[Rfam]
RNA: BsrG
Organism: Lederbergia citrea
Nucleotides: 253
Stems, first nucleotide, its partner, number of pairs: 001226001003224003007220003011216001016198002018158006025151001027148004035056002038053004065127005078091003102118003168193003200211003232253009
Number, partner (000 for none) and nucleotide at each position: 001226a002000a003224g004223c005222a006000a007220u008219a009218g010000a011216a012000a013000g014000a015000u016198u017197g018158c019157u020156c021155a022154a023153g024000a025151g026000u027148g028147g029146u030145u031000g032000g033000c034000a035056c036055a037000u038053c039052c040051c041050c042000g043000a044000u045000u046000g047000a048000a049000a050041g051040g052039g053038g054000g055036u056035g057000a058000u059000g060000c061000u062000a063000u064000u065127g066126a067125c068124a069123g070000u071000c072000u073000a074000u075000c076000a077000g078091g079090c080089a081000u082000u083000a084000a085000u086000g087000u088000u089080u090079g091078c092000a093000a094000u095000u096000g097000c098000g099000u100000u101000u102118g103117c104116a105000a106000g107000c108000c109000u110000a111000a112000u113000c114000a115000u116104u117103g118102c119000u120000g121000u122000c123069c124068u125067g126066u127065c128000a129000u130000u131000u132000a133000a134000c135000c136000a137000u138000a139000a140000a141000a142000a143000a144000u145030a146029a147028c148027c149000c150000a151025c152000c153023c154022u155021u156020g157019a158018g159000u160000u161000u162000g163000g164000a165000g166000a167000g168193c169192u170191c171000g172000a173000g174000u175000g176000g177000a178000u179000u180000a181000u182000u183000u184000u185000c186000c187000c188000a189000a190000u191170g192169a193168g194000u195000g196000c197017c198016g199000a200211c201210c202209c203000c204000u205000u206000a207000a208000a209202g210201g211200g212000a213000a214000u215000c216011u217000g218009c219008u220007a221000u222005u223004g224003c225000a226001u227000u228000u229000c230000c231000g232253c233252u234251u235250c236249g237248g238247u239246g240245u241000u242000a243000c244000a245240g246239c247238a248237u249236c250235g251234a252233g253232g